The family of this 77-nucleotide RNA sequence is "L13-Bacteroidia ribosomal protein leader". It is annotated as a cis-regulatory leader. The family's consensus secondary structure is taken from published work.
[Rfam]
RNA sequence: GAGGGCAGUCUUAGAGCCCUUGGCACAUACGUGUUAAUAGUGUCAUGCUUUUGGCCGAGCAACAUGGUUAGUGAAUC
Numbered sequence: 001g002a003g004g005g006c007a008g009u010c011u012u013a014g015a016g017c018c019c020u021u022g023g024c025a026c027a028u029a030c031g032u033g034u035u036a037a038u039a040g041u042g043u044c045a046u047g048c049u050u051u052u053g054g055c056c057g058a059g060c061a062a063c064a065u066g067g068u069u070a071g072u073g074a075a076u077c
Stems, first nucleotide, its partner, number of pairs: 001021006034071005040065003046061005